RNA: MIR5565 microRNA precursor family
Organism: Miscanthus lutarioriparius
RNA sequence: AUACAUAUAUUCACCUCAAUCCACAUAUGUUGGAGUGGAUUAUGGUGAAAAUUAAACUAAAUUCCACCACAAUCCAUUCCAAUACAUGUAGAUUGCGGUGAAUAUAUGU
Numbered sequence: 001a002u003a004c005a006u007a008u009a010u011u012c013a014c015c016u017c018a019a020u021c022c023a024c025a026u027a028u029g030u031u032g033g034a035g036u037g038g039a040u041u042a043u044g045g046u047g048a049a050a051a052u053u054a055a056a057c058u059a060a061a062u063u064c065c066a067c068c069a070c071a072a073u074c075c076a077u078u079c080c081a082a083u084a085c086a087u088g089u090a091g092a093u094u095g096c097g098g099u100g101a102a103u104a105u106a107u108g109u
Stems, first nucleotide, its partner, number of pairs: 004108011017095005023089004028084005035077007043069001045067003